RNA sequence: GGUCUCGCCUCGGGGGGGCCUGACCGGCCUGAGAUGCGCAUCCCGCGCGGACCCGUUGAACCUGAACCGGAUCAUGCCGGCGGAGGGAAGGCCGAGACGCGUACG
Numbered sequence: 001g002g003u004c005u006c007g008c009c010u011c012g013g014g015g016g017g018g019c020c021u022g023a024c025c026g027g028c029c030u031g032a033g034a035u036g037c038g039c040a041u042c043c044c045g046c047g048c049g050g051a052c053c054c055g056u057u058g059a060a061c062c063u064g065a066a067c068c069g070g071a072u073c074a075u076g077c078c079g080g081c082g083g084a085g086g087g088a089a090g091g092c093c094g095a096g097a098c099g100c101g102u103a104c105g
Stems, first nucleotide, its partner, number of pairs: 007092004011055004017029004036048004061086003067080004
RNA: TPP riboswitch aptamer (THI element)
Organism: Pontivivens ytuae